[Rfam]
RNA sequence: CAUGCACUAGUGGGGUCCCUCGGCCUGGCCUGCAGGAUCGGGCAGAAAACAACUCUCCAACAUUUCUCAAAAGGUUCAUGGAUUAUGAGAGGGUGCAGGCCAGGCUGAGGGACCCUACCAGUGCACA
Numbered sequence: 001c002a003u004g005c006a007c008u009a010g011u012g013g014g015g016u017c018c019c020u021c022g023g024c025c026u027g028g029c030c031u032g033c034a035g036g037a038u039c040g041g042g043c044a045g046a047a048a049a050c051a052a053c054u055c056u057c058c059a060a061c062a063u064u065u066c067u068c069a070a071a072a073g074g075u076u077c078a079u080g081g082a083u084u085a086u087g088a089g090a091g092g093g094u095g096c097a098g099g100c101c102a103g104g105c106u107g108a109g110g111g112a113c114c115c116u117a118c119c120a121g122u123g124c125a126c127a
Stems, first nucleotide, its partner, number of pairs: 003125002006122001008120001010118001012116014027101008
This 127-nucleotide sequence from Cnephaeus nilssonii belongs to the Rfam family "mir-9193 microRNA precursor family". The organism belongs to Cnephaeus, within Eukaryota. The base pairs follow the family's consensus structure, which was predicted with RNAalifold. Gene Ontology terms of the family: RISC complex and miRNA-mediated post-transcriptional gene silencing.